[Rfam]
RNA sequence: AGUGGACCCGGCGACGCCGGGUGGCUCGGCCGGGCGCCUAUCCCUCGGACAAUC
Numbered sequence: 001a002g003u004g005g006a007c008c009c010g011g012c013g014a015c016g017c018c019g020g021g022u023g024g025c026u027c028g029g030c031c032g033g034g035c036g037c038c039u040a041u042c043c044c045u046c047g048g049a050c051a052a053u054c
Stems, first nucleotide, its partner, number of pairs: 006022006030048005
A member of the RNA family "sul1 RNA" from Lampropedia aestuarii, 54 nucleotides long. By type it is a riboswitch.